[Rfam]
Rfam assigns this 86-nucleotide RNA from Chrysochloris asiatica to the family "mir-3154 microRNA precursor family". Taxonomically the source falls in Chrysochloris (Eukaryota, Amniota, Mammalia, Chrysochlorinae). The family's consensus secondary structure was predicted with RNAalifold.
RNA sequence: AGGCCCCUCCUUCCUAGCCAGAGCUCUCCUUCACCCCUGCCACGUCAAAGGAGGCAGAAGGGGAGUCGGGAGCAGAGAGGGGACUG
Numbered sequence: 001a002g003g004c005c006c007c008u009c010c011u012u013c014c015u016a017g018c019c020a021g022a023g024c025u026c027u028c029c030u031u032c033a034c035c036c037c038u039g040c041c042a043c044g045u046c047a048a049a050g051g052a053g054g055c056a057g058a059a060g061g062g063g064a065g066u067c068g069g070g071a072g073c074a075g076a077g078a079g080g081g082g083a084c085u086g
Stems, first nucleotide, its partner, number of pairs: 002085002004082006012076002023073006030065003034062003037057005043051001
Dot-bracket structure: .((((((((..((.........((((((.(((.((((((((.(.......).)))))..))))))..)))))).)))))))).)).